Small Cajal body specific RNA 16: a 180-nucleotide RNA from Galemys pyrenaicus. NCBI's taxonomy places the organism under Eukaryota, Vertebrata, Sarcopterygii, Theria, Galemys. It scores 136 bits against the family's covariance model. By type it is a small Cajal body RNA. About the family: scaRNAs are a specific class of small nuclear RNAs which localise to the Cajal bodies and guide the modification of RNA polymerase II transcribed spliceosomal RNAs U1, U2, U4, U5 and U12. ACA47 belongs to the H/ACA box class of guide RNAs as it has the predicted hairpin-hinge-hairpin-tail structure, the conserved H/ACA-box motifs and is found associated with GAR1. Gene Ontology terms of the family: RNA processing and nucleolus. For this family Rfam cites "Cajal body-specific small nuclear RNAs: a novel class of 2'-O-methylation and pseudouridylation guide RNAs" (Darzacq et al., EMBO J, 2002).
RNA sequence: GUGGUCUGGUGAAAGGCUCCUGUGCUGAACCUGCCCUGCAGGGAAUAUAGCCUUAGAACAGGCAACCCCAUUCUGACCAAAAUAAAUUCCCAGGAGUUUUUCUUGGAUUUUGAAUUUGCAAUCACAGGUGUAAACAUUCUAGCAGCAGUUUGAUGAUCAUGUAUGAUACUGCAAAAAGGA
Numbered sequence: 001g002u003g004g005u006c007u008g009g010u011g012a013a014a015g016g017c018u019c020c021u022g023u024g025c026u027g028a029a030c031c032u033g034c035c036c037u038g039c040a041g042g043g044a045a046u047a048u049a050g051c052c053u054u055a056g057a058a059c060a061g062g063c064a065a066c067c068c069c070a071u072u073c074u075g076a077c078c079a080a081a082a083u084a085a086a087u088u089c090c091c092a093g094g095a096g097u098u099u100u101u102c103u104u105g106g107a108u109u110u111u112g113a114a115u116u117u118g119c120a121a122u123c124a125c126a127g128g129u130g131u132a133a134a135c136a137u138u139c140u141a142g143c144a145g146c147a148g149u150u151u152g153a154u155g156a157u158c159a160u161g162u163a164u165g166a167u168a169c170u171g172c173a174a175a176a177a178g179g180a
Stems, first nucleotide, its partner, number of pairs: 003078004008073002015067002018064001019062004024051004029046001090106002092103004115175006122168001125165002131159001133157001135155004141150003
Dot-bracket structure: ..((((.((.....((.(((((.((((.(................).)))).......)))).).))....)).))))...........((((((....)))).))........((((((.(..((....(.(.((((..(((....))).)))).).)....))..).)))))).....